[Rfam]
RNA: Fungal signal recognition particle RNA
Organism: Monascus purpureus
Nucleotides: 261
Base pairs, nucleotide, nucleotide: 002014003013004012020258021257022256023255024254029249030248031247032246033245034244035241036240037239038238039237040236041233042232043231044230046228052065053064055062066220067219068218069217071216072215073214074213075212076208077207078206079205080204081202082201083200085197086196087195088194089193090192091191092190093189095136097134098133101131102130103129104128106124107123108122109121110120112119113118137141145188146187147186148185149184150183151182156179157178158177163172164171165170
Number, partner (000 for none) and nucleotide at each position: 001000a002014a003013u004012c005000u006000g007000u008000u009000g010000c011000g012004g013003a014002u015000a016000g017000u018000u019000u020258a021257a022256g023255g024254g025000g026000a027000g028000a029249g030248c031247a032246a033245c034244u035241g036240u037239a038238g039237c040236c041233a042232u043231u044230g045000a046228c047000c048000c049000u050000g051000c052065g053064c054000g055062g056000c057000u058000a059000u060000g061000c062055c063000a064053g065052c066220g067219g068218g069217u070000u071216g072215g073214u074213g075212u076208c077207u078206g079205g080204u081202u082201c083200g084000a085197a086196u087195c088194c089193c090192g091191g092190g093189g094000u095136c096000g097134u098133c099000g100000c101131u102130g103129u104128a105000c106124u107123c108122a109121u110120g111000c112119g113118a114000g115000u116000a117000a118113u119112c120110c121109a122108u123107g124106a125000u126000g127000c128104u129103a130102c131101g132000g133098g134097g135000c136095g137141c138000u139000a140000a141137g142000c143000a144000a145188u146187g147186g148185a149184a150183g151182u152000g153000a154000c155000c156179c157178u158177u159000g160000a161000g162000g163172g164171a165170a166000g167000c168000a169000a170165u171164u172163c173000u174000g175000c176000a177158g178157a179156g180000a181000c182151a183150c184149u185148u186147c187146c188145a189093c190092c191091c192090u193089g194088g195087g196086a197085u198000g199000g200083c201082g202081g203000c204080a205079c206078c207077a208076g209000a210000u211000u212075a213074c214073a215072c216071c217069a218068c219067c220066c221000g222000u223000c224000u225000a226000c227000a228046g229000g230044c231043g232042a233041u234000u235000u236040g237039g238038c239037u240036g241035u242000u243000a244034g245033g246032u247031u248030g249029u250000g251000c252000a253000a254024c255023c256022c257021u258020u259000u260000u261000u